[Rfam]
Rfam assigns this 114-nucleotide sequence from Persicitalea jodogahamensis to the family "SAM riboswitch aptamer (S box leader)". On this family, see Rodionov et al., Nucleic Acids Res 2004: "Comparative genomics of the methionine metabolism in Gram-positive bacteria: a variety of regulatory systems". Pairs were carried over by alignment from the consensus structure, which is taken from published work. A search with the family's covariance model found it, with a score of 65 bits.
RNA sequence: GAUUUAUAGAGAAGAGGCUAGAGAAUGGGCUCAUAGAACCUCUGGCAACCUAUCCCACGCGCAACCGGGACAAGGUGCUAACUCCCACCUAAUCGUAUUUAGGAAAUAUAAACC
Numbered sequence: 001g002a003u004u005u006a007u008a009g010a011g012a013a014g015a016g017g018c019u020a021g022a023g024a025a026u027g028g029g030c031u032c033a034u035a036g037a038a039c040c041u042c043u044g045g046c047a048a049c050c051u052a053u054c055c056c057a058c059g060c061g062c063a064a065c066c067g068g069g070a071c072a073a074g075g076u077g078c079u080a081a082c083u084c085c086c087a088c089c090u091a092a093u094c095g096u097a098u099u100u101a102g103g104a105a106a107u108a109u110a111a112a113c114c
Stems, first nucleotide, its partner, number of pairs: 001114001003112006013043005021032003026087004044079004049075002053069002083106001088103005
Dot-bracket structure: (.((((((....(((((...(((..[[[[)))......)))))((((.((..((.............))....))))))...(]]]](((((......)))))..))))))).)